[Rfam]
RNA sequence: GGAAGGGAAUCGUCUCCGGUGGGACGGCCGGACUUCAAAUCCGGUUGGGGCAGCGAGACUGUCUCGGGUGGGUUCGACCCCCACUCCCCUCC
Numbered sequence: 001g002g003a004a005g006g007g008a009a010u011c012g013u014c015u016c017c018g019g020u021g022g023g024a025c026g027g028c029c030g031g032a033c034u035u036c037a038a039a040u041c042c043g044g045u046u047g048g049g050g051c052a053g054c055g056a057g058a059c060u061g062u063c064u065c066g067g068g069u070g071g072g073u074u075c076g077a078c079c080c081c082c083a084c085u086c087c088c089c090u091c092c
Base pairs, nucleotide, nucleotide: 001092002091003090005088006087007086008085011026012025013024014023015022016021027045028044029043030042031041032040047065048064049063050062051061069083070082071081072080